[Rfam]
RNA sequence: UAACCACUGACCUUAAUAGGUGAAUGUUG
Numbered sequence: 001u002a003a004c005c006a007c008u009g010a011c012c013u014u015a016a017u018a019g020g021u022g023a024a025u026g027u028u029g
Stems, first nucleotide, its partner, number of pairs: 001029004008024001010021004

L19-Flavobacteria ribosomal protein leader: a 29-nucleotide RNA from Python bivittatus. By type it is a cis-regulatory leader. Taxonomically the source falls in Python (Eukaryota, Bilateria, Vertebrata, Squamata). A search with the family's covariance model found it, with a score of 34 bits.